[Rfam]
A member of the RNA family "Plastid-ycf2 5UTR RNA" from Gossypium stocksii, 75 nucleotides long. It scores 94 bits against the family's covariance model. The literature on the family includes a 2023 paper in Plant Commun by Richter et al., "Retrograde signaling in plants: A critical review focusing on the GUN pathway and beyond". By type it is a cis-regulatory element. About the family: Plastid ycf2 is a non-coding RNA (ncRNA) recognised in plastids. It was found in the prime untranslated region (5UTR) of ycf2 genes, it presents a tRNA-like motif which suggests it can be involved in mRNA maturation, particularly involved in defining the precise 5' end of the transcript.

RNA sequence: AUGCAUCCAGUAGGAAUUGAACCUACAAGUUCGCCAAUUAUGAGUUGGAUGUUUUAACCAUUCAAUCAUGGAUGC
Numbered sequence: 001a002u003g004c005a006u007c008c009a010g011u012a013g014g015a016a017u018u019g020a021a022c023c024u025a026c027a028a029g030u031u032c033g034c035c036a037a038u039u040a041u042g043a044g045u046u047g048g049a050u051g052u053u054u055u056a057a058c059c060a061u062u063c064a065a066u067c068a069u070g071g072a073u074g075c
Stems, first nucleotide, its partner, number of pairs: 003075006010026005040069003044066008